Rfam assigns this 137-nucleotide sequence from Phascolarctos cinereus to the family "Small nucleolar RNA SNORA29". The organism belongs to Phascolarctos, within Eukaryota. A reference for the family is Huttenhofer et al. (2001), "RNomics: an experimental approach that identifies 201 candidates for novel, small, non-messenger RNAs in mouse", EMBO J. ACA29 is a member of the H/ACA class of snoRNA that guide the sites of modification of uridines to pseudouridines. By type it is an H/ACA-box small nucleolar RNA. Its Rfam clan is "SNORA20 clan". The base pairs follow the family's consensus structure, which was predicted with PFOLD.
RNA sequence: CUUCCCAUUUGAGUACCACUUUUUCACUUCAUAGAUUCAGUGACUAUGCUUAUGGAAUAAAAUAUAGCUGCCAUGGUCUGAUGGAGAAAGAGUGGCCAUGUCUUUUUUUCCUAUGUGAAAUGGCAGAACAAUCUAGC
Numbered sequence: 001c002u003u004c005c006c007a008u009u010u011g012a013g014u015a016c017c018a019c020u021u022u023u024u025c026a027c028u029u030c031a032u033a034g035a036u037u038c039a040g041u042g043a044c045u046a047u048g049c050u051u052a053u054g055g056a057a058u059a060a061a062a063u064a065u066a067g068c069u070g071c072c073a074u075g076g077u078c079u080g081a082u083g084g085a086g087a088a089a090g091a092g093u094g095g096c097c098a099u100g101u102c103u104u105u106u107u108u109u110c111c112u113a114u115g116u117g118a119a120a121u122g123g124c125a126g127a128a129c130a131a132u133c134u135a136g137c
Stems, first nucleotide, its partner, number of pairs: 005055003017042003070124004088112001090110002